[Rfam]
RNA sequence: UGGGCUGGAUGUAUAGUCGCGGUGCUUUUUUGCACUGAGGAAAGUCCGAACUCCAUAGGGCAGGAUACCGGAUAACUUCCGGAUGGUGAAAGCCAUGGAAAGUGCCACAGAAACUAUACCGUUCAGCACUAACAUGCAGAGCAUGUAAGUGCUGGAUAAGGGUGCAACGGUGAGGUAAGAGCUUACCGCGGCAAUGGUAACAUUGCCGGCAAAGGUAAACCCUAUCCGGAGAAAGUCUAAAUAGGGGAUAAGAAAUGACCCGUUUCAUUUGAAUCCCGGGUAAGGCGUAUGAGGUAGAUGGUAACAUCUAUCCCAGAUAAAUGACUAUAAUAACAGAAUUCGGCUUACAAUCCAGCCUUCCUA
Numbered sequence: 001u002g003g004g005c006u007g008g009a010u011g012u013a014u015a016g017u018c019g020c021g022g023u024g025c026u027u028u029u030u031u032g033c034a035c036u037g038a039g040g041a042a043a044g045u046c047c048g049a050a051c052u053c054c055a056u057a058g059g060g061c062a063g064g065a066u067a068c069c070g071g072a073u074a075a076c077u078u079c080c081g082g083a084u085g086g087u088g089a090a091a092g093c094c095a096u097g098g099a100a101a102g103u104g105c106c107a108c109a110g111a112a113a114c115u116a117u118a119c120c121g122u123u124c125a126g127c128a129c130u131a132a133c134a135u136g137c138a139g140a141g142c143a144u145g146u147a148a149g150u151g152c153u154g155g156a157u158a159a160g161g162g163u164g165c166a167a168c169g170g171u172g173a174g175g176u177a178a179g180a181g182c183u184u185a186c187c188g189c190g191g192c193a194a195u196g197g198u199a200a201c202a203u204u205g206c207c208g209g210c211a212a213a214g215g216u217a218a219a220c221c222c223u224a225u226c227c228g229g230a231g232a233a234a235g236u237c238u239a240a241a242u243a244g245g246g247g248a249u250a251a252g253a254a255a256u257g258a259c260c261c262g263u264u265u266c267a268u269u270u271g272a273a274u275c276c277c278g279g280g281u282a283a284g285g286c287g288u289a290u291g292a293g294g295u296a297g298a299u300g301g302u303a304a305c306a307u308c309u310a311u312c313c314c315a316g317a318u319a320a321a322u323g324a325c326u327a328u329a330a331u332a333a334c335a336g337a338a339u340u341c342g343g344c345u346u347a348c349a350a351u352c353c354a355g356c357c358u359u360c361c362u363a
Stems, first nucleotide, its partner, number of pairs: 002358009011348001012329007020037006042346003046343005051231004058265004063227005068082005083096005097222002102220002104216003119161002121157009169187006188210001189208008235286004245277005257269002293312008
The family of this 363-nucleotide RNA from Candidatus Mcinerneyibacterium aminivorans is "Bacterial RNase P class A". Rfam classes the family as a ribozyme. NCBI's taxonomy places the organism under Bacteria, Candidatus Macinerneyibacteriota, Candidatus Mcinerneyibacteriales, Candidatus Mcinerneyibacteriaceae, Candidatus Mcinerneyibacterium. Its family is annotated with ribonuclease P activity, tRNA processing and dimeric ribonuclease P complex in the Gene Ontology. About the family: Ribonuclease P (RNase P) is a ubiquitous endoribonuclease, found in archaea, bacteria and eukarya as well as chloroplasts and mitochondria. For this family Rfam cites "Identification and characterization of small RNAs in Yersinia pestis" (Beauregard et al., RNA Biol, 2013). Pairs were carried over by alignment from the consensus structure, which is taken from published work.